[Rfam]
RNA sequence: GCCUGUAUCGAAAGUGACUGUGGAUCUUUGUGGCCAGGUCAUUGAUAAUGCAGGCACAGCAAACGGAGAGCCUUUCCCUGUGUUUGACGGAGGUGCAGUUCCUAUCAAACCCUGGCGCUUUCAUACA
Numbered sequence: 001g002c003c004u005g006u007a008u009c010g011a012a013a014g015u016g017a018c019u020g021u022g023g024a025u026c027u028u029u030g031u032g033g034c035c036a037g038g039u040c041a042u043u044g045a046u047a048a049u050g051c052a053g054g055c056a057c058a059g060c061a062a063a064c065g066g067a068g069a070g071c072c073u074u075u076c077c078c079u080g081u082g083u084u085u086g087a088c089g090g091a092g093g094u095g096c097a098g099u100u101c102c103u104a105u106c107a108a109a110c111c112c113u114g115g116c117g118c119u120u121u122c123a124u125a126c127a
Stems, first nucleotide, its partner, number of pairs: 001055008013043007022035002025032001063124001066122006082110005089102003